[Rfam]
RNA sequence: CGACCGCUUUUCUUUCAAUAUGAUCGAAAAGCCAAGCCCGGACGGACAGGCGGGUCGAAAGCCGA
Numbered sequence: 001c002g003a004c005c006g007c008u009u010u011u012c013u014u015u016c017a018a019u020a021u022g023a024u025c026g027a028a029a030a031g032c033c034a035a036g037c038c039c040g041g042a043c044g045g046a047c048a049g050g051c052g053g054g055u056c057g058a059a060a061g062c063c064g065a
Stems, first nucleotide, its partner, number of pairs: 001057005006032006
Dot-bracket structure: (((((((((((...............))))))....................)))))........

Background
This 65-nucleotide RNA sequence from Ruminococcus sp. YE71 belongs to the Rfam family "Streptococcus sRNA SpF59 (ldcC RNA)". By type it is a small RNA. The literature on the family includes a 2012 paper in PLoS Pathog by Mann et al., "Control of virulence by small RNAs in Streptococcus pneumoniae".